[Rfam]
RNA: Group II catalytic intron D1-D4-3
RNA sequence: UCCAUCGUGAGGUGGAAUCUGAAGGAAGCAGGCGGCAAAACUCUGCCCCGAGGAACACGAACCACAUCAGGCAUAUCCAAUGGGAUGAGACUGCCAAACAAGUCGAAGUCCAAAGAUUACACGGACAUUGGAGUGUAAAUGAGGCGGGGACAUGGAGUGAAAGUGAGUUAU
Number, nucleotide and partner (000 for none) at each position: 001u016002c015003c014004a013005u012006c011007g000008u000009g000010a000011g006012g005013u004014g003015g002016a001017a000018u000019c000020u000021g000022a000023a000024g000025g000026a000027a000028g171029c000030a169031g168032g000033c000034g000035g164036c163037a000038a000039a000040a158041c157042u156043c155044u154045g153046c149047c148048c147049c146050g145051a000052g000053g000054a000055a000056c000057a000058c000059g000060a000061a000062c144063c143064a000065c141066a140067u000068c000069a000070g000071g136072c135073a134074u000075a000076u132077c131078c130079a129080a128081u127082g126083g111084g110085a109086u108087g000088a000089g104090a103091c102092u101093g000094c000095c000096a000097a000098a000099c000100a000101a092102g091103u090104c089105g000106a000107a000108g086109u085110c084111c083112a000113a000114a000115g000116a000117u000118u000119a000120c000121a000122c000123g000124g000125a000126c082127a081128u080129u079130g078131g077132a076133g000134u073135g072136u071137a000138a000139a000140u066141g065142a000143g063144g062145c050146g049147g048148g047149g046150a000151c000152a000153u045154g044155g043156a042157g041158u040159g000160a000161a000162a000163g036164u035165g000166a000167g000168u031169u030170a000171u028